[Rfam]
Notes: This 131-nucleotide RNA sequence from Jaculus jaculus belongs to the Rfam family "Small nucleolar RNA SNORA33". Gene Ontology terms of the family: RNA processing and nucleolus. The organism belongs to Jaculus, within Eukaryota. Pairs were carried over by alignment from the consensus structure, which was predicted with PFOLD.
RNA sequence: AAGACAGCCAAUUAAUCUGCUUAUCUGAAUGUAUUUCUGUAGAAAUUUAGAAAAAGCUGGCAAUACUGAUGUCAUUUCAUGAGCCUUAAGGGCAACUGAGAUCAUUACUGUCCCUAAAAAUGGCUACAAUA
Dot-bracket structure: ..(.(((........(((((..................))))).............))).).........((((........((..(((.((.........)).)))..)).........)))).......